Notes
The family of this 357-nucleotide sequence from Cystoisospora suis is "Nuclear RNase P". Rfam's curators write: Ribonuclease P (RNase P) is a ubiquitous endoribonuclease, found in archaea, bacteria and eukarya as well as chloroplasts and mitochondria. Its best characterised activity is the generation of mature 5'-ends of tRNAs by cleaving the 5'-leader elements of precursor-tRNAs. Cellular RNase Ps are ribonucleoproteins. RNA from bacterial RNase Ps retains its catalytic activity in the absence of the protein subunit, i.e. it is a ribozyme. Isolated eukaryotic and archaeal RNase P RNA has not been shown to retain its catalytic function, but is still essential for the catalytic activity of the holoenzyme. Although the archaeal and eukaryotic holoenzyme s have a much greater protein content than the bacterial ones, the RNA cores from all the three lineages are homologous -- helices corresponding to P1, P2, P3, P4, and P10/11 are common to all cellular RNase P RNAs. Yet, there is considerable sequence variation, particularly among the eukaryotic RNAs. The literature on the family includes a 1998 paper in Annu Rev Biochem by Frank and Pace, "Ribonuclease P: unity and diversity in a tRNA processing ribozyme". It is annotated as a ribozyme. Lineage of the source: Eukaryota > Alveolata > Eucoccidiorida > Sarcocystidae > Cystoisospora.

[Rfam]
RNA sequence: GAGUGUCAGAGCUCAGAAUUCUCUGCGUCCCAACGGUGUGCCGAGCUUUCAUCUCGGACACACGCACAGGCAGAGGGGAGGGUCUGAGAUGCCGAUUUUUGACCGAGAGGUUACACGCCUCAAGGCGUGGGUCGCCAACCAGAAAAUCACCGGCUGAGGAGAGGGCGCACCCCGGUGACGGUUGAGUGCCCCUUCCUCGGUUGGUUUGAAAGAGGCUGACUGGCAAGAGCGAUGGGGCUGUUCGGAGUCCAGGCUUUAUCGCACAAGGAUUGAGUUCAAUUUCUGAGGCGCUCAAAAACAGGUGGAUGCUCUUGUAUCGCCUGAGAGCGAACUCGAUUCAGACUACUCCUGGCACUC
Numbered sequence: 001g002a003g004u005g006u007c008a009g010a011g012c013u014c015a016g017a018a019u020u021c022u023c024u025g026c027g028u029c030c031c032a033a034c035g036g037u038g039u040g041c042c043g044a045g046c047u048u049u050c051a052u053c054u055c056g057g058a059c060a061c062a063c064g065c066a067c068a069g070g071c072a073g074a075g076g077g078g079a080g081g082g083u084c085u086g087a088g089a090u091g092c093c094g095a096u097u098u099u100u101g102a103c104c105g106a107g108a109g110g111u112u113a114c115a116c117g118c119c120u121c122a123a124g125g126c127g128u129g130g131g132u133c134g135c136c137a138a139c140c141a142g143a144a145a146a147u148c149a150c151c152g153g154c155u156g157a158g159g160a161g162a163g164g165g166c167g168c169a170c171c172c173c174g175g176u177g178a179c180g181g182u183u184g185a186g187u188g189c190c191c192c193u194u195c196c197u198c199g200g201u202u203g204g205u206u207u208g209a210a211a212g213a214g215g216c217u218g219a220c221u222g223g224c225a226a227g228a229g230c231g232a233u234g235g236g237g238c239u240g241u242u243c244g245g246a247g248u249c250c251a252g253g254c255u256u257u258a259u260c261g262c263a264c265a266a267g268g269a270u271u272g273a274g275u276u277c278a279a280u281u282u283c284u285g286a287g288g289c290g291c292u293c294a295a296a297a298a299c300a301g302g303u304g305g306a307u308g309c310u311c312u313u314g315u316a317u318c319g320c321c322u323g324a325g326a327g328c329g330a331a332c333u334c335g336a337u338u339c340a341g342a343c344u345a346c347u348c349c350u351g352g353c354a355c356u357c
Stems, first nucleotide, its partner, number of pairs: 001357004007351003012287007021075005036063005041057005084341005090225004100113005114129006130221004134216003149205003289329005